RNA sequence: CCGAGUCCCGACGCACUCCCCCCCCCCGGCGCCGGGGCUCCUCCCGAGCCGGGCCUCGGCGCCACUCCCCCCUGGCGCCGGGGCCCGGCUCCACU
Numbered sequence: 001c002c003g004a005g006u007c008c009c010g011a012c013g014c015a016c017u018c019c020c021c022c023c024c025c026c027c028g029g030c031g032c033c034g035g036g037g038c039u040c041c042u043c044c045c046g047a048g049c050c051g052g053g054c055c056u057c058g059g060c061g062c063c064a065c066u067c068c069c070c071c072c073u074g075g076c077g078c079c080g081g082g083g084c085c086c087g088g089c090u091c092c093a094c095u
Stems, first nucleotide, its partner, number of pairs: 005038006012031003046091010057080008
This 95-nucleotide RNA sequence from Streptomyces nodosus belongs to the Rfam family "Streptomyces RNA 3202".
Pairs were carried over by alignment from the consensus structure.
The family's RNA type in Rfam is small RNA.
Identified by deep sequencing of transcriptome at the end of exponential growth phase. Appears smaller on northern blot than sequencing transcript. This indicates processing step.
It scores 57 bits against the family's covariance model.
The literature on the family includes a 2011 paper in RNA Biol by Vockenhuber et al., "Deep sequencing-based identification of small non-coding RNAs in Streptomyces coelicolor".
The source organism's lineage runs through Bacteria, Bacillati, Actinomycetota, Streptomycetaceae and Streptomyces.